Shown here is a 70-nucleotide sequence from Jaculus jaculus, a member of the family "Small nucleolar RNA SNORD56". Its family is annotated with nucleolus and RNA processing in the Gene Ontology.
RNA sequence: CUACAAUAAUGGUGAUAUUUUUCAUCAACGCAGUUCACUUAAUGAGUUUUGAUACUUUGGGUCUAAGUGA
Numbered sequence: 001c002u003a004c005a006a007u008a009a010u011g012g013u014g015a016u017a018u019u020u021u022u023c024a025u026c027a028a029c030g031c032a033g034u035u036c037a038c039u040u041a042a043u044g045a046g047u048u049u050u051g052a053u054a055c056u057u058u059g060g061g062u063c064u065a066a067g068u069g070a
Stems, first nucleotide, its partner, number of pairs: 002069003009025003

The family's consensus secondary structure was predicted with PFOLD. Taxonomically the source falls in Jaculus (Eukaryota, Opisthokonta, Gnathostomata, Euteleostomi). It is annotated as a C/D-box small nucleolar RNA.